RNA sequence: GAUUACCUGAGAUGUUUGCCGGCGGAUUAAGUCCCUGAGCCGAUACUGAAAACUUAAUGAAUUGGCGUCCUGUUGUUGGUGUGUAUGCUUGCUAGCCAUGCAAGAAACCUAAAAACAAUAUUAGCCGAUUCCCUUGAACCGUAGGGUUCAAGGACCGAACAUCCGCAGCGGCAUCUCGGGGCUAUU
Numbered sequence: 001g002a003u004u005a006c007c008u009g010a011g012a013u014g015u016u017u018g019c020c021g022g023c024g025g026a027u028u029a030a031g032u033c034c035c036u037g038a039g040c041c042g043a044u045a046c047u048g049a050a051a052a053c054u055u056a057a058u059g060a061a062u063u064g065g066c067g068u069c070c071u072g073u074u075g076u077u078g079g080u081g082u083g084u085a086u087g088c089u090u091g092c093u094a095g096c097c098a099u100g101c102a103a104g105a106a107a108c109c110u111a112a113a114a115a116c117a118a119u120a121u122u123a124g125c126c127g128a129u130u131c132c133c134u135u136g137a138a139c140c141g142u143a144g145g146g147u148u149c150a151a152g153g154a155c156c157g158a159a160c161a162u163c164c165g166c167a168g169c170g171g172c173a174u175c176u177c178g179g180g181g182c183u184a185u186u
Stems, first nucleotide, its partner, number of pairs: 006180010017170003031155004036150006059131003063127004071120007083108002088104005
RNA: 6S / SsrS RNA